[Rfam]
RNA sequence: GUUGCUUCAUAUGGUGAACUCUCUCUUAAACUUUAAGUGAGGGAUGUUCAAGUUUCCGAAGCAUAAAUGAAUAGUCAGUAUCAAACAGCAUGGUGUAUUUCAAUUGCAUUUUGCUACCUGUCUCCUGCUACAUCC
Numbered sequence: 001g002u003u004g005c006u007u008c009a010u011a012u013g014g015u016g017a018a019c020u021c022u023c024u025c026u027u028a029a030a031c032u033u034u035a036a037g038u039g040a041g042g043g044a045u046g047u048u049c050a051a052g053u054u055u056c057c058g059a060a061g062c063a064u065a066a067a068u069g070a071a072u073a074g075u076c077a078g079u080a081u082c083a084a085a086c087a088g089c090a091u092g093g094u095g096u097a098u099u100u101c102a103a104u105u106g107c108a109u110u111u112u113g114c115u116a117c118c119u120g121u122c123u124c125c126u127g128c129u130a131c132a133u134c135c
Stems, first nucleotide, its partner, number of pairs: 003063006015050005020044005074129001076127003080123001087115003092110004
Shown here is a 135-nucleotide RNA sequence from Solanum lycopersicum, a member of the family "small nucleolar RNA snoR137". Lineage of the source: Eukaryota > Pentapetalae > lamiids > Solanaceae > Solanum subgen. Lycopersicon.